RNA: Lysine riboswitch aptamer
Organism: Salisediminibacterium beveridgei
RNA sequence: AAUACUGAUAGAGGUGCAGGUAGAUGAGUAACGUGACUGAGUCCGGUUUGACGAGGAUGUUACGUGAAAGGUGAUCCUGCCGAAGUUCCUGGCCGAUUCCGCGUCUUUGAGCUGGUGGACAGUUGAAUAAACUGUCUAUUGUCACUGUCAUUGCAGUGGAGCACUAUCCUGAUA
Numbered sequence: 001a002a003u004a005c006u007g008a009u010a011g012a013g014g015u016g017c018a019g020g021u022a023g024a025u026g027a028g029u030a031a032c033g034u035g036a037c038u039g040a041g042u043c044c045g046g047u048u049u050g051a052c053g054a055g056g057a058u059g060u061u062a063c064g065u066g067a068a069a070g071g072u073g074a075u076c077c078u079g080c081c082g083a084a085g086u087u088c089c090u091g092g093c094c095g096a097u098u099c100c101g102c103g104u105c106u107u108u109g110a111g112c113u114g115g116u117g118g119a120c121a122g123u124u125g126a127a128u129a130a131a132c133u134g135u136c137u138a139u140u141g142u143c144a145c146u147g148u149c150a151u152u153g154c155a156g157u158g159g160a161g162c163a164c165u166a167u168c169c170u171g172a173u174a
Base pairs, nucleotide, nucleotide: 007168008167009166010165011164016080017079018078019077020076021074023072031065032064033063034062035061036060037059084113085112086111087110088109091106092105094103095102114140115139116138117137118136119135120134121133122132123131124130142159143158144157145156146155147154148153